[Rfam]
RNA: Streptomyces-metH RNA
Organism: Streptomyces carminius
RNA sequence: CCGUCCACGUCUCGGAACGCUCCGGGCCCCGGCCGCCCCGCCCGAUACCCUGACCGGGUGCGCUUCCGUACGGAAGGCGCAUAGCCGACAGCCGUCGCACUCCAGGGAGCCCUUCAUG
Numbered sequence: 001c002c003g004u005c006c007a008c009g010u011c012u013c014g015g016a017a018c019g020c021u022c023c024g025g026g027c028c029c030c031g032g033c034c035g036c037c038c039c040g041c042c043c044g045a046u047a048c049c050c051u052g053a054c055c056g057g058g059u060g061c062g063c064u065u066c067c068g069u070a071c072g073g074a075a076g077g078c079g080c081a082u083a084g085c086c087g088a089c090a091g092c093c094g095u096c097g098c099a100c101u102c103c104a105g106g107g108a109g110c111c112c113u114u115c116a117u118g
Stems, first nucleotide, its partner, number of pairs: 059081004064075004084098002087096003